[Rfam]
RNA sequence: CUUGCAAGUUUGAGGCUGCAACAGAAGCGCUCAUGGUGCAGCCUUGUCAGAUACCAACCAAUCUGUGGAUUCUGCU
Numbered sequence: 001c002u003u004g005c006a007a008g009u010u011u012g013a014g015g016c017u018g019c020a021a022c023a024g025a026a027g028c029g030c031u032c033a034u035g036g037u038g039c040a041g042c043c044u045u046g047u048c049a050g051a052u053a054c055c056a057a058c059c060a061a062u063c064u065g066u067g068g069a070u071u072c073u074g075c076u
Stems, first nucleotide, its partner, number of pairs: 014043004020076001022074005027039003048065005
A member of the RNA family "Mammalian CPEB3 ribozyme" from Crocodylus porosus, 76 nucleotides long.
Gene Ontology term of the family: RNA nuclease activity.
The match comes from Rfam's covariance-model search (40 bits).
Pairs were carried over by alignment from the consensus structure, which is taken from published work.